[Rfam]
RNA: Small nucleolar RNA SNORD53/SNORD92
Organism: Oryctolagus cuniculus
RNA sequence: UUGCCGUGAUGACUUCCGUUGGGUUUCGCAUGUUGCUGAGCCCCAGUGAUGCGUCCUCUCUUGGCUGUCUGAGCAG
Dot-bracket structure: ((((....................................................................))))